[Rfam]
RNA sequence: GUGCAUCUAUUUUACAGACCUGGGGCAUUGUCUGCUUCUAAGGUUUCCACUACAGAUGCGAGAAGAAAGUUCCUUGGCUUUCUGUCUGUCUGCUUGUGGCAGCCAAGACUGACUAGGGAAAUACAGGA
Number, nucleotide and partner (000 for none) at each position: 001g000002u060003g059004c058005a057006u056007c055008u054009a000010u000011u000012u049013u000014a000015c000016a046017g045018a044019c043020c042021u000022g000023g037024g036025g035026c034027a033028u000029u000030g000031u000032c000033u027034g026035c025036u024037u023038c000039u000040a000041a000042g020043g019044u018045u017046u016047c000048c000049a012050c000051u000052a000053c000054a008055g007056a006057u005058g004059c003060g002061a000062g000063a000064a000065g000066a000067a000068a000069g000070u120071u119072c118073c117074u116075u115076g000077g000078c111079u000080u000081u108082c107083u106084g000085u000086c102087u101088g100089u099090c098091u000092g000093c000094u000095u000096g000097u000098g090099g089100c088101a087102g086103c000104c000105a000106a083107g082108a081109c000110u000111g078112a000113c000114u000115a075116g074117g073118g072119a071120a070121a000122u000123a000124c000125a000126g000127g000128a000
The family of this 128-nucleotide RNA sequence from Loxodonta africana is "Small nucleolar RNA SNORA31".
By type it is an H/ACA-box small nucleolar RNA.
About the family: ACA31 (SNORA31) belongs to the H/ACA class of snoRNAs which are thought to guide the sites of modification of uridines to pseudouridines.
Rfam 15.1 lists 2,094 matches to the family in 626 species.
A search with the family's covariance model found it, with a score of 54 bits.
A reference for the family is Huttenhofer et al. (2001), "RNomics: an experimental approach that identifies 201 candidates for novel, small, non-messenger RNAs in mouse", EMBO J.